[Rfam]
Nucleotides: 157
Base pairs, nucleotide, nucleotide: 001044002043003042004041005040006038007037008036010034011033012032013031014030015029016028017027018026019025053149054148055147056146057145058144059143060142061141062140066133067132098124099123100122101121102120105117106116107115
Number, partner (000 for none) and nucleotide at each position: 001044u002043a003042g004041g005040c006038c007037u008036u009000g010034c011033g012032u013031u014030g015029c016028u017027u018026c019025u020000u021000u022000a023000u024000g025019a026018g027017a028016a029015g030014u031013a032012a033011u034010g035000g036008a037007a038006g039000u040005g041004c042003u043002u044001g045000g046000g047000c048000u049000a050000c051000a052000c053149g054148u055147c056146c057145u058144u059143u060142c061141g062140c063000u064000a065000c066133g067132a068000c069000a070000a071000a072000c073000u074000a075000a076000u077000a078000u079000c080000u081000g082000u083000u084000u085000g086000u087000c088000a089000u090000a091000a092000a093000a094000u095000u096000c097000a098124a099123u100122c101121a102120c103000g104000a105117c106116a107115c108000c109000u110000a111000a112000u113000g114000c115107g116106u117105g118000a119000a120102g121101u122100g123099g124098u125000g126000g127000u128000g129000c130000a131000u132067u133066c134000a135000a136000c137000u138000a139000g140062g141061c142060g143059a144058g145057a146056g147055g148054g149053c150000u151000a152000c153000u154000g155000a156000g157000g
The family of this 157-nucleotide RNA sequence is "RT-16 RNA".
It is one of the family's seed sequences.
By type it is a small RNA.